[Rfam]
Bacterial large subunit ribosomal RNA: a 233-nucleotide part of an RNA from an uncultured Verrucomicrobiota bacterium. The base pairs follow the family's consensus structure, which is taken from published work.

RNA sequence: GAGUUAGCUUGAAUGGCAAGCGGAUGGCCUUCUGGGCAGUACGCAUAGCUAAAGCGAGUCAAAAAAGGCGACAUUAGUCGUUCGAGCUAAACCCGAAGCGGUGGUGAUCUACCCUUGGCCAGGACAAAGCUGUGGUAAUACACAGUGGAAGACCGAACCGGUGAAUCUUGAGAAAUUCUCGGAUGAGCUGAGGGUAGGAGUGAAAGGCUAAUCAAACCCCGUAAUAGCUGGUU
Numbered sequence: 001g002a003g004u005u006a007g008c009u010u011g012a013a014u015g016g017c018a019a020g021c022g023g024a025u026g027g028c029c030u031u032c033u034g035g036g037c038a039g040u041a042c043g044c045a046u047a048g049c050u051a052a053a054g055c056g057a058g059u060c061a062a063a064a065a066a067g068g069c070g071a072c073a074u075u076a077g078u079c080g081u082u083c084g085a086g087c088u089a090a091a092c093c094c095g096a097a098g099c100g101g102u103g104g105u106g107a108u109c110u111a112c113c114c115u116u117g118g119c120c121a122g123g124a125c126a127a128a129g130c131u132g133u134g135g136u137a138a139u140a141c142a143c144a145g146u147g148g149a150a151g152a153c154c155g156a157a158c159c160g161g162u163g164a165a166u167c168u169u170g171a172g173a174a175a176u177u178c179u180c181g182g183a184u185g186a187g188c189u190g191a192g193g194g195u196a197g198g199a200g201u202g203a204a205a206g207g208c209u210a211a212u213c214a215a216a217c218c219c220c221g222u223a224a225u226a227g228c229u230g231g232u233u
Stems, first nucleotide, its partner, number of pairs: 005089013020044003027037002048055002058069003092231002095228001099221003103218003109197011120185001122154002125151001129146006158182003163178004199209003